RNA sequence: AACUUUUACGAGGUAUCAGCACUUUUCUUUCAUUAGUGGGGAAGGAAGGAUGAAAACUCCAAAGCAGCCGUAGACUUUGAAAGUUUCUAUAGUCAGGUCCGAGUGCCUGAACGUGCUCUUCCAUUUUACUUUAACCCUCCAAAGAAGUAUUCUGAUCCCGUUUCACUGCUGAGCAGCCAGGGUAAG
Numbered sequence: 001a002a003c004u005u006u007u008a009c010g011a012g013g014u015a016u017c018a019g020c021a022c023u024u025u026u027c028u029u030u031c032a033u034u035a036g037u038g039g040g041g042a043a044g045g046a047a048g049g050a051u052g053a054a055a056a057c058u059c060c061a062a063a064g065c066a067g068c069c070g071u072a073g074a075c076u077u078u079g080a081a082a083g084u085u086u087c088u089a090u091a092g093u094c095a096g097g098u099c100c101g102a103g104u105g106c107c108u109g110a111a112c113g114u115g116c117u118c119u120u121c122c123a124u125u126u127u128a129c130u131u132u133a134a135c136c137c138u139c140c141a142a143a144g145a146a147g148u149a150u151u152c153u154g155a156u157c158c159c160g161u162u163u164c165a166c167u168g169c170u171g172a173g174c175a176g177c178c179a180g181g182g183u184a185a186g
Stems, first nucleotide, its partner, number of pairs: 003019002007015003029146003033142002036139001038137003041132004049125004055120002073099005101116001103114003158186001161182003166176003
Annotation: Connexin-43 internal ribosome entry site (IRES): a 186-nucleotide RNA sequence from Ramphastos sulfuratus. Gene Ontology term of the family: ribosome binding. The base pairs follow the family's consensus structure, which is taken from published work. About the family: This family represents the connexin-43 internal ribosome entry site (IRES) which allows cap independent translation during conditions such as heat shock and stress. The source organism's lineage runs through Eukaryota, Teleostomi, Archelosauria, Saurischia and Ramphastos.